[Rfam]
RNA sequence: CUUACCGGAGGCGCUAUGGAUCCCGAUCCCACCCCUCAUCCCCGAUGGAGAAGACCCUUCCGGUAAGCCCGCAUUUGCUGCCUUACCGGAUGCGUAAGGCAGCGACGUCAU
Numbered sequence: 001c002u003u004a005c006c007g008g009a010g011g012c013g014c015u016a017u018g019g020a021u022c023c024c025g026a027u028c029c030c031a032c033c034c035c036u037c038a039u040c041c042c043c044g045a046u047g048g049a050g051a052a053g054a055c056c057c058u059u060c061c062g063g064u065a066a067g068c069c070c071g072c073a074u075u076u077g078c079u080g081c082c083u084u085a086c087c088g089g090a091u092g093c094g095u096a097a098g099g100c101a102g103c104g105a106c107g108u109c110a111u
Base pairs, nucleotide, nucleotide: 001067002066003065004064005063006062007061008060009059010058011057017031018030019029036051037050039048040047077103078102079101080100081099082098083097084096085095086094
RNA: Magnesium riboswitch aptamer (Magnesium responsive RNA element)
Organism: Kosakonia cowanii